[Rfam]
RNA sequence: GGGUUAAUGCUAAUCGUGAUAGGGGUUGUUUCUAAGGGAACACCUAUGCUGUUAGCAUUAAUCC
Numbered sequence: 001g002g003g004u005u006a007a008u009g010c011u012a013a014u015c016g017u018g019a020u021a022g023g024g025g026u027u028g029u030u031u032c033u034a035a036g037g038g039a040a041c042a043c044c045u046a047u048g049c050u051g052u053u054a055g056c057a058u059u060a061a062u063c064c
Stems, first nucleotide, its partner, number of pairs: 004061011020046004025041003